[Rfam]
RNA sequence: AACGACGAUGCGGGAGAGACCGGCCGAGGCCGCGAGCCAAAGCCGGCGCCGACGGAGCAACACCCCCGGAAACUCUCAGGCACCCGAGACCGCAUCGAUCGG
Numbered sequence: 001a002a003c004g005a006c007g008a009u010g011c012g013g014g015a016g017a018g019a020c021c022g023g024c025c026g027a028g029g030c031c032g033c034g035a036g037c038c039a040a041a042g043c044c045g046g047c048g049c050c051g052a053c054g055g056a057g058c059a060a061c062a063c064c065c066c067c068g069g070a071a072a073c074u075c076u077c078a079g080g081c082a083c084c085c086g087a088g089a090c091c092g093c094a095u096c097g098a099u100c101g102g
Base pairs, nucleotide, nucleotide: 006097007096008095009094010093011092012091013090020046021045022044023043048081049080050079051077052076055075056074057073061068
A member of the RNA family "Glycine riboswitch aptamer" from Rhodoplanes serenus, 102 nucleotides long.
A search with the family's covariance model found it, with a score of 54 bits.
Taxonomically the source falls in Rhodoplanes (Bacteria, Pseudomonadati, Pseudomonadota, Nitrobacteraceae).